[Rfam]
RNA sequence: GAUGAAAAUGAAGACAAUUGGGAUACAAAGUUUAUAUUAUUUGAAAAUACCAUUUAUUUUCUAAUUCACC
Numbered sequence: 001g002a003u004g005a006a007a008a009u010g011a012a013g014a015c016a017a018u019u020g021g022g023a024u025a026c027a028a029a030g031u032u033u034a035u036a037u038u039a040u041u042u043g044a045a046a047a048u049a050c051c052a053u054u055u056a057u058u059u060u061c062u063a064a065u066u067c068a069c070c
Stems, first nucleotide, its partner, number of pairs: 001070001003068004